[Rfam]
This 58-nucleotide sequence from Quercus lobata belongs to the Rfam family "Plastid-psbA-3 3UTR RNA". Its Rfam clan is "Plastid-psbA 3UTR RNA clan". Plastid psbA-3 is a non-coding RNA (ncRNA) present in plastids. It was identified in inverted repeat sequences in the 3 prime untranslate region (3UTR) of photosystem II quinone-binding protein (psbA). The organism belongs to Quercus, within Eukaryota. A search with the family's covariance model found it, with a score of 55 bits. A reference for the family is Richter et al. (2023), "Retrograde signaling in plants: A critical review focusing on the GUN pathway and beyond", Plant Commun.
RNA sequence: AAAGGAGCAAUGUCAACCCUCUUGAUAAAACAAGAAGUUGAUUAUUGCUCCUUUCUUA
Dot-bracket structure: ((((((((((((((.....(((((......)))))....)).))))))))))))....